[Rfam]
RNA: U12 minor spliceosomal RNA
RNA sequence: AUGCCUUAAACUUAUGAGUAAGGAAAAUAACGACUCGGGGUGACGCCCGAGUCCUCACUACUGAUGUGAGAGGAAUUUUUGUGCGGGUACAGGUCGUCCCCGGGUGACCCGCUUACUUCGCGGGAUGCCCAGGUGCAAUGAUCUGCCCG
Numbered sequence: 001a002u003g004c005c006u007u008a009a010a011c012u013u014a015u016g017a018g019u020a021a022g023g024a025a026a027a028u029a030a031c032g033a034c035u036c037g038g039g040g041u042g043a044c045g046c047c048c049g050a051g052u053c054c055u056c057a058c059u060a061c062u063g064a065u066g067u068g069a070g071a072g073g074a075a076u077u078u079u080u081g082u083g084c085g086g087g088u089a090c091a092g093g094u095c096g097u098c099c100c101c102g103g104g105u106g107a108c109c110c111g112c113u114u115a116c117u118u119c120g121c122g123g124g125a126u127g128c129c130c131a132g133g134u135g136c137a138a139u140g141a142u143c144u145g146c147c148c149g
Stems, first nucleotide, its partner, number of pairs: 004023005032053008054070005084149005091144007100133002102130005108124005